RNA sequence: AAAGUGGCUCAGACAAUCGCUGCCGGACUUCGGUCCGGGAGAGGAAAGUCCGGGCUCCAUAGGGCAGGAUGCCAGGUAACGCCUGGGCGGCGUGAGCCGACGGAAAGUGCAGCAGAGAGCAGACCGCCUAAGCACGCAAGUGCCGGCAAGGGUGAAAGGGUGCGGUAAGAGCGCACCGCGCGGCUGGUAACAGGCGUGGCAUGGUAAACCCCAUCCGGAGCAAGACCAAAUAGGAACCCCAUGGUACGGCCCGUACAAGGGUUCGGGUAGGUUGCUUGAGGCGUACGGUGACGUGCGUCCUAGAGGAAUGAUUGUCCCCGACAAAACCCGGCUUAUCGAGCCACUUUCACC
Dot-bracket structure: ((((((((((((((((((.((.((((((....)))))).))....[[[.[[[[[((((...[[[[.((((((((((.....)))))(((((....)))).)((...((((.............(((((...((((....)))).)))..)).......((((((.......))))))(((((.(((....))).)))).)...))..)))))))))))))...((((......((((((....((((.]]]]))))..)))))).....))))......((((((((....))))))))..........)))))))..........]]]]]]]].).))))))))))....
Numbered sequence: 001a002a003a004g005u006g007g008c009u010c011a012g013a014c015a016a017u018c019g020c021u022g023c024c025g026g027a028c029u030u031c032g033g034u035c036c037g038g039g040a041g042a043g044g045a046a047a048g049u050c051c052g053g054g055c056u057c058c059a060u061a062g063g064g065c066a067g068g069a070u071g072c073c074a075g076g077u078a079a080c081g082c083c084u085g086g087g088c089g090g091c092g093u094g095a096g097c098c099g100a101c102g103g104a105a106a107g108u109g110c111a112g113c114a115g116a117g118a119g120c121a122g123a124c125c126g127c128c129u130a131a132g133c134a135c136g137c138a139a140g141u142g143c144c145g146g147c148a149a150g151g152g153u154g155a156a157a158g159g160g161u162g163c164g165g166u167a168a169g170a171g172c173g174c175a176c177c178g179c180g181c182g183g184c185u186g187g188u189a190a191c192a193g194g195c196g197u198g199g200c201a202u203g204g205u206a207a208a209c210c211c212c213a214u215c216c217g218g219a220g221c222a223a224g225a226c227c228a229a230a231u232a233g234g235a236a237c238c239c240c241a242u243g244g245u246a247c248g249g250c251c252c253g254u255a256c257a258a259g260g261g262u263u264c265g266g267g268u269a270g271g272u273u274g275c276u277u278g279a280g281g282c283g284u285a286c287g288g289u290g291a292c293g294u295g296c297g298u299c300c301u302a303g304a305g306g307a308a309u310g311a312u313u314g315u316c317c318c319c320g321a322c323a324a325a326a327c328c329c330g331g332c333u334u335a336u337c338g339a340g341c342c343a344c345u346u347u348c349a350c351c
Stems, first nucleotide, its partner, number of pairs: 001347010011336001012316007020041002023038006046334003050331005055220004062252004067216005072086005087101001088099004102211002107209002109205002124151002126147003132143004159177006178200001179198004184193003224273004234264006244256004280299008
A member of the RNA family "Bacterial RNase P class A" from Zymobacter palmae, 351 nucleotides long. Pairs were carried over by alignment from the consensus structure, which is taken from published work. Rfam classes the family as a ribozyme. The source organism's lineage runs through Bacteria, Pseudomonadati, Pseudomonadota, Oceanospirillales and Zymobacter. Rfam's curators write: Ribonuclease P (RNase P) is a ubiquitous endoribonuclease, found in archaea, bacteria and eukarya as well as chloroplasts and mitochondria.